[Rfam]
RNA sequence: GGUCGCAAGUUUGAGGUCAUAGUAGAAAUGCUCACAGCGCAGCCCUGUCAGAUUCCAACAAAUCUGCAAAGUCUGCU
Numbered sequence: 001g002g003u004c005g006c007a008a009g010u011u012u013g014a015g016g017u018c019a020u021a022g023u024a025g026a027a028a029u030g031c032u033c034a035c036a037g038c039g040c041a042g043c044c045c046u047g048u049c050a051g052a053u054u055c056c057a058a059c060a061a062a063u064c065u066g067c068a069a070a071g072u073c074u075g076c077u
Base pairs, nucleotide, nucleotide: 013045015044016043017042021077022076023075024074025073026072029039030038049066050065051064052063053062054061
A member of the RNA family "Mammalian CPEB3 ribozyme" from Alligator mississippiensis, 77 nucleotides long. Lineage of the source: Eukaryota > Bilateria > Euteleostomi > Alligatoridae > Alligator. Rfam 15.1 lists 5,706 matches to the family in 197 species. The match comes from Rfam's covariance-model search (38 bits).